[Rfam]
RNA sequence: AGGCUGCCUGAUGUUUGCGAGAUCUAACGGCAAAGGUGUUAAACUGCUCGUAGGUGUCUCUUGCUCUUCAGACUUCCUGAGAUGUCUUUGAAGCCGGUCUAGUAAGUUCAAGUACAUU
Numbered sequence: 001a002g003g004c005u006g007c008c009u010g011a012u013g014u015u016u017g018c019g020a021g022a023u024c025u026a027a028c029g030g031c032a033a034a035g036g037u038g039u040u041a042a043a044c045u046g047c048u049c050g051u052a053g054g055u056g057u058c059u060c061u062u063g064c065u066c067u068u069c070a071g072a073c074u075u076c077c078u079g080a081g082a083u084g085u086c087u088u089u090g091a092a093g094c095c096g097g098u099c100u101a102g103u104a105a106g107u108u109c110a111a112g113u114a115c116a117u118u
Stems, first nucleotide, its partner, number of pairs: 002040003007036002009033001010031001012029004058112002063107003070100005077093002081086001